[Rfam]
RNA: Archaeal large subunit ribosomal RNA, nucleotides 1428 to 1829
Organism: Ignisphaera aggregans
RNA sequence: GGUAGUAACAGCAAAGAGGGGUGAAAACCCCCUCCGCCGGAAGGGCCAGGGUUCCUCGGCAACGUUUGUCGGCCGAGGGUUAGCCGGCCCUAAGGCGGGCCGUAACUCGGUUCCGCCGAAAGGGAAAGGGGUUAAUAUUCCCCUGCCGCGGGGGUAGGUGCGGCAACGCAAGCCGCGCCCCCGACGCCUCGGGGUAGGCCGACUGGGGCUGCCAUGCCCCAGCUAACCGUCCGAAGGCCGGGGAGUGCCGUAAAGGCGAGAACCGGCCGAAGGAGGGAAUGGCCGCCCGUUAGGGCGGUUCGGCCGAGCCCUGGGGCCCAUGAAAAGGGGGCGCGGAACGAUCCCCCGCGCCCGUACCGAGAACCGACACAGGUGCCCCUGGGUGAGGAGCCCAAGGCGUGC
Numbered sequence: 001g002g003u004a005g006u007a008a009c010a011g012c013a014a015a016g017a018g019g020g021g022u023g024a025a026a027a028c029c030c031c032c033u034c035c036g037c038c039g040g041a042a043g044g045g046c047c048a049g050g051g052u053u054c055c056u057c058g059g060c061a062a063c064g065u066u067u068g069u070c071g072g073c074c075g076a077g078g079g080u081u082a083g084c085c086g087g088c089c090c091u092a093a094g095g096c097g098g099g100c101c102g103u104a105a106c107u108c109g110g111u112u113c114c115g116c117c118g119a120a121a122g123g124g125a126a127a128g129g130g131g132u133u134a135a136u137a138u139u140c141c142c143c144u145g146c147c148g149c150g151g152g153g154g155u156a157g158g159u160g161c162g163g164c165a166a167c168g169c170a171a172g173c174c175g176c177g178c179c180c181c182c183g184a185c186g187c188c189u190c191g192g193g194g195u196a197g198g199c200c201g202a203c204u205g206g207g208g209c210u211g212c213c214a215u216g217c218c219c220c221a222g223c224u225a226a227c228c229g230u231c232c233g234a235a236g237g238c239c240g241g242g243g244a245g246u247g248c249c250g251u252a253a254a255g256g257c258g259a260g261a262a263c264c265g266g267c268c269g270a271a272g273g274a275g276g277g278a279a280u281g282g283c284c285g286c287c288c289g290u291u292a293g294g295g296c297g298g299u300u301c302g303g304c305c306g307a308g309c310c311c312u313g314g315g316g317c318c319c320a321u322g323a324a325a326a327g328g329g330g331g332c333g334c335g336g337a338a339c340g341a342u343c344c345c346c347c348g349c350g351c352c353c354g355u356a357c358c359g360a361g362a363a364c365c366g367a368c369a370c371a372g373g374u375g376c377c378c379c380u381g382g383g384u385g386a387g388g389a390g391c392c393c394a395a396g397g398c399g400u401g402c
Stems, first nucleotide, its partner, number of pairs: 016034006035399004043378004049358002054078006063071002085354003089123002094117006100110003127144005147350008180329003186317009197305005203222005227276002230274002237267005247257003288293001364373002380394004